[Rfam]
Shown here is a 115-nucleotide RNA sequence from Uncinocarpus reesii, a member of the family "U5 spliceosomal RNA". Gene Ontology terms of the family: spliceosomal tri-snRNP complex assembly and U5 snRNP. On this family, see Thomas et al., Nucleic Acids Res 1990: "The spliceosomal snRNAs of Caenorhabditis elegans". Rfam's curators put it in the seed alignment.
RNA sequence: AGGAGUGGGACAAGCUAGCUCAGAAUCCAUUUCUUGCCUUUUACCAGAGAUGGCCGUGGCUUUGCCCAAAAUACUCCGCUCCUCAAUCUUUGGAAGAACUCUCGACUACAGUCAG
Numbered sequence: 001a002g003g004a005g006u007g008g009g010a011c012a013a014g015c016u017a018g019c020u021c022a023g024a025a026u027c028c029a030u031u032u033c034u035u036g037c038c039u040u041u042u043a044c045c046a047g048a049g050a051u052g053g054c055c056g057u058g059g060c061u062u063u064g065c066c067c068a069a070a071a072u073a074c075u076c077c078g079c080u081c082c083u084c085a086a087u088c089u090u091u092g093g094a095a096g097a098a099c100u101c102u103c104g105a106c107u108a109c110a111g112u113c114a115g
Stems, first nucleotide, its partner, number of pairs: 003076004008066002012062006027053008098112003